[Rfam]
RNA sequence: UCGCAUGCUUUUCCACGGCUUUCUUGAACUUGGUACUCAGUUCGAUUUCUCUCUCACUUGCAAUGCAAAAGCAAAUCUUAGUACCAAGUUCAAGAAAGCUGUGGGAAAACAUGAAAG
Numbered sequence: 001u002c003g004c005a006u007g008c009u010u011u012u013c014c015a016c017g018g019c020u021u022u023c024u025u026g027a028a029c030u031u032g033g034u035a036c037u038c039a040g041u042u043c044g045a046u047u048u049c050u051c052u053c054u055c056a057c058u059u060g061c062a063a064u065g066c067a068a069a070a071g072c073a074a075a076u077c078u079u080a081g082u083a084c085c086a087a088g089u090u091c092a093a094g095a096a097a098g099c100u101g102u103g104g105g106a107a108a109a110c111a112u113g114a115a116a117g
Stems, first nucleotide, its partner, number of pairs: 004113004013104003017100006024093004029088005